[Rfam]
RNA sequence: GGUCGGGCCCGGUGCACGGGAGGCCCGUGAACCUGGUCAGGGCUUGACCGCAGCAGCCAUAAGCGGCGUCUGCCGGGGCGUCGGUGUCCUGGCCGCC
Numbered sequence: 001g002g003u004c005g006g007g008c009c010c011g012g013u014g015c016a017c018g019g020g021a022g023g024c025c026c027g028u029g030a031a032c033c034u035g036g037u038c039a040g041g042g043c044u045u046g047a048c049c050g051c052a053g054c055a056g057c058c059a060u061a062a063g064c065g066g067c068g069u070c071u072g073c074c075g076g077g078g079c080g081u082c083g084g085u086g087u088c089c090u091g092g093c094c095g096c097c
Base pairs, nucleotide, nucleotide: 004091005090006089007088009084010083011082012081013080014079015076017075018074019073021071022070025066026065027064028063034059035058036057037056042051043050
RNA: Bacterial small signal recognition particle RNA
Organism: Phycisphaera sp.